Record summary:
Shown here is a 359-nucleotide sequence from Parahaliea mediterranea, a member of the family "Bacterial RNase P class A". Ribonuclease P (RNase P) is a ubiquitous endoribonuclease, found in archaea, bacteria and eukarya as well as chloroplasts and mitochondria.
RNA sequence: CGAGUCGAUCAGGCGAUCGCUCCCGGUCGUGUUUCACGGCCGCGGGGAGGAAAGUCCGGGCUCCAUAGGGCAGGGUGCCAGGUAACACCUGGGGGGCGCGAGCCUACGGAAAGUGCAACAGAAAGUAUACCGCCCGGCCACCCAGUGGUCGGGUAAGGGUGAAAUGGUGCGGUAAGAGCGCACCGCGCGGCUGGCAACAGGCGCGGCGAUGGUAAACCCCACCCGGAGCAAGACCAAAUAGGAAUCCAGACGCUGUGGCCCGCAGUGGAUUCGGGUAGGUCGCUACAGGCAGGCGGCGACGCCUGUCGCAGAUGAAUGAUCGUCCUCGACAGAACCCGGCUUAUCGAUCGACUCACUCU
Numbered sequence: 001c002g003a004g005u006c007g008a009u010c011a012g013g014c015g016a017u018c019g020c021u022c023c024c025g026g027u028c029g030u031g032u033u034u035c036a037c038g039g040c041c042g043c044g045g046g047g048a049g050g051a052a053a054g055u056c057c058g059g060g061c062u063c064c065a066u067a068g069g070g071c072a073g074g075g076u077g078c079c080a081g082g083u084a085a086c087a088c089c090u091g092g093g094g095g096g097c098g099c100g101a102g103c104c105u106a107c108g109g110a111a112a113g114u115g116c117a118a119c120a121g122a123a124a125g126u127a128u129a130c131c132g133c134c135c136g137g138c139c140a141c142c143c144a145g146u147g148g149u150c151g152g153g154u155a156a157g158g159g160u161g162a163a164a165u166g167g168u169g170c171g172g173u174a175a176g177a178g179c180g181c182a183c184c185g186c187g188c189g190g191c192u193g194g195c196a197a198c199a200g201g202c203g204c205g206g207c208g209a210u211g212g213u214a215a216a217c218c219c220c221a222c223c224c225g226g227a228g229c230a231a232g233a234c235c236a237a238a239u240a241g242g243a244a245u246c247c248a249g250a251c252g253c254u255g256u257g258g259c260c261c262g263c264a265g266u267g268g269a270u271u272c273g274g275g276u277a278g279g280u281c282g283c284u285a286c287a288g289g290c291a292g293g294c295g296g297c298g299a300c301g302c303c304u305g306u307c308g309c310a311g312a313u314g315a316a317u318g319a320u321c322g323u324c325c326u327c328g329a330c331a332g333a334a335c336c337c338g339g340c341u342u343a344u345c346g347a348u349c350g351a352c353u354c355a356c357u358c359u
Stems, first nucleotide, its partner, number of pairs: 002354009011344001012324007020047004024042005052342003056339005061228004068261004073224005078092005093107001094105004108219002113217002115213002130158002132154009166184006185207001186205004191200003232281004242272006252266005288307008